[Rfam]
RNA sequence: CGGGAGGUAGAUACUCAGGCUGGGCUCAGCACUGUCCUGCUUGUCACAAGGCCUCCCCAGAUCAUUCUUGCCCUCUGAUGACCGGGGCGAAUUGAGAGAAAUCGCAACGGACAGAUACGGGGCAGACACAU
Numbered sequence: 001c002g003g004g005a006g007g008u009a010g011a012u013a014c015u016c017a018g019g020c021u022g023g024g025c026u027c028a029g030c031a032c033u034g035u036c037c038u039g040c041u042u043g044u045c046a047c048a049a050g051g052c053c054u055c056c057c058c059a060g061a062u063c064a065u066u067c068u069u070g071c072c073c074u075c076u077g078a079u080g081a082c083c084g085g086g087g088c089g090a091a092u093u094g095a096g097a098g099a100a101a102u103c104g105c106a107a108c109g110g111a112c113a114g115a116u117a118c119g120g121g122g123c124a125g126a127c128a129c130a131u
Base pairs, nucleotide, nucleotide: 002057003056004055005054006053007052016043017042018041022037023036024035025034068125069124070123071122072121073120074119082110083109084108087105088104089103090102
RNA: Small Cajal body specific RNA 8
Organism: Albula goreensis